[Rfam]
RNA sequence: UAGACAAAUUUUUGUAUUCGAGUGUAUUCACGGCGUGAAGCAGGGGAUUACAUUUGUUUUUAAACGGAAAGUGAAUUAAUUAACAUAAUAGACUCCU
Dot-bracket structure: ..((....((.((((.((.((.((.((((((..((((((..((.........))..)))....)))....)))))))).)))).)))).))..))..
RNA: MIR6152 microRNA precursor family